[Rfam]
RNA sequence: GAUAAAAGAACCUAUAAUCCCUUCGCACACCGCGUCACACCGCGCUAUAUGCUGCUCAUUAGGAAUUACGGCUCCUUUUUUGUGGAUACAAUCUCUUGUAUACGAUAUACUUAUUGUUAAUUUCAUUGACCUUUACGCAAUCCUGCGUAAAUGCUGGUAUAGGGUGUACUUCGGAUUUCCGAGCCUAUAUUGGUUUUGAAAGGACCUUUAAGUCCCUACUAUACUACAUUGUACUAGCGUAGGCCACGUAGGCCCGUAAGAUAUUAUAACUAUUUUAUUAUAUUUUAUUCACCCCCCACAUUAAUCCCAGUUAAAGCUUUAUAACUAUAAGUAAGCCGUGCCGAAACGUUAAUCGGUCGCUAGUUGCGUAACAACUGUUAGUUUAAUUUUCCAAAAUUUAUUUUUCACAAUUUUUAGUUAAGAUUUUAGCUUGCCUUAAGCAGUCUUUAUAUCUUCUGUAUAUUAUUUUAAAGUUUAUAGGAGCAAAGUUCGCUUUACUCGCAAUAGCUAUUUUAUUUAUUUUAGGAAUAUUAUCACCUCGUAAUUAUUUAAUUAUAACAUUAGCUUUAUCUAUUUAUA
Numbered sequence: 001g002a003u004a005a006a007a008g009a010a011c012c013u014a015u016a017a018u019c020c021c022u023u024c025g026c027a028c029a030c031c032g033c034g035u036c037a038c039a040c041c042g043c044g045c046u047a048u049a050u051g052c053u054g055c056u057c058a059u060u061a062g063g064a065a066u067u068a069c070g071g072c073u074c075c076u077u078u079u080u081u082g083u084g085g086a087u088a089c090a091a092u093c094u095c096u097u098g099u100a101u102a103c104g105a106u107a108u109a110c111u112u113a114u115u116g117u118u119a120a121u122u123u124c125a126u127u128g129a130c131c132u133u134u135a136c137g138c139a140a141u142c143c144u145g146c147g148u149a150a151a152u153g154c155u156g157g158u159a160u161a162g163g164g165u166g167u168a169c170u171u172c173g174g175a176u177u178u179c180c181g182a183g184c185c186u187a188u189a190u191u192g193g194u195u196u197u198g199a200a201a202g203g204a205c206c207u208u209u210a211a212g213u214c215c216c217u218a219c220u221a222u223a224c225u226a227c228a229u230u231g232u233a234c235u236a237g238c239g240u241a242g243g244c245c246a247c248g249u250a251g252g253c254c255c256g257u258a259a260g261a262u263a264u265u266a267u268a269a270c271u272a273u274u275u276u277a278u279u280a281u282a283u284u285u286u287a288u289u290c291a292c293c294c295c296c297c298a299c300a301u302u303a304a305u306c307c308c309a310g311u312u313a314a315a316g317c318u319u320u321a322u323a324a325c326u327a328u329a330a331g332u333a334a335g336c337c338g339u340g341c342c343g344a345a346a347c348g349u350u351a352a353u354c355g356g357u358c359g360c361u362a363g364u365u366g367c368g369u370a371a372c373a374a375c376u377g378u379u380a381g382u383u384u385a386a387u388u389u390u391c392c393a394a395a396a397u398u399u400a401u402u403u404u405u406c407a408c409a410a411u412u413u414u415u416a417g418u419u420a421a422g423a424u425u426u427u428a429g430c431u432u433g434c435c436u437u438a439a440g441c442a443g444u445c446u447u448u449a450u451a452u453c454u455u456c457u458g459u460a461u462a463u464u465a466u467u468u469u470a471a472a473g474u475u476u477a478u479a480g481g482a483g484c485a486a487a488g489u490u491c492g493c494u495u496u497a498c499u500c501g502c503a504a505u506a507g508c509u510a511u512u513u514u515a516u517u518u519a520u521u522u523u524a525g526g527a528a529u530a531u532u533a534u535c536a537c538c539u540c541g542u543a544a545u546u547a548u549u550u551a552a553u554u555a556u557a558a559c560a561u562u563a564g565c566u567u568u569a570u571c572u573a574u575u576u577a578u579a
Stems, first nucleotide, its partner, number of pairs: 004079005012071002015068004020063003025055003028051002032045004081300005086101006102117006133150007151240012163225006171182004183194003202215004242254004256288009266278004309572002312569007319558006328551007337541002340357005358368003369380004381537002384533004389528004393523005400516002409425006427510005432503003438495004445488004453483008462474003
Shown here is a 579-nucleotide sequence from Cripavirus ropadi, a member of the family "Rhopalosiphum padi virus 5'UTR internal ribosome entry site". Pairs were carried over by alignment from the consensus structure, which was predicted with RNAfold. Its family is annotated with ribosome binding in the Gene Ontology.